[Rfam]
RNA sequence: UGCAGCAACCAAGCGCAAGUGCCGCUUUUGGCGGCAGACGAGGCGGAGGUUUAUCGAUUAGUCAGCGGGUGCCUCCCGGCCGGCUGCGGGCCGUAAGCAGACUGACAAAGCCCCAUGGCAACGUGGGGGACAAAGCAGCUGCGGCAGAACUG
Numbered sequence: 001u002g003c004a005g006c007a008a009c010c011a012a013g014c015g016c017a018a019g020u021g022c023c024g025c026u027u028u029u030g031g032c033g034g035c036a037g038a039c040g041a042g043g044c045g046g047a048g049g050u051u052u053a054u055c056g057a058u059u060a061g062u063c064a065g066c067g068g069g070u071g072c073c074u075c076c077c078g079g080c081c082g083g084c085u086g087c088g089g090g091c092c093g094u095a096a097g098c099a100g101a102c103u104g105a106c107a108a109a110g111c112c113c114c115a116u117g118g119c120a121a122c123g124u125g126g127g128g129g130a131c132a133a134a135g136c137a138g139c140u141g142c143g144g145c146a147g148a149a150c151u152g
Stems, first nucleotide, its partner, number of pairs: 020036007045076005054065001056063002077093005097142004102138002111128007

glmS glucosamine-6-phosphate activated ribozyme aptamer: a 152-nucleotide sequence from Phascolarctobacterium sp. CAG:266. The base pairs follow the family's consensus structure, which is taken from published work. This entry contains a glucosamine-6-phosphate activated ribozyme that is found in the mRNA for GlmS. GlmS is an enzyme that uses fructose-6-phosphate and glutamine to generate glucosamine-6-phosphate. The ribozyme catalyses self cleavage of the glmS mRNA that is thought to regulate GlmS activity.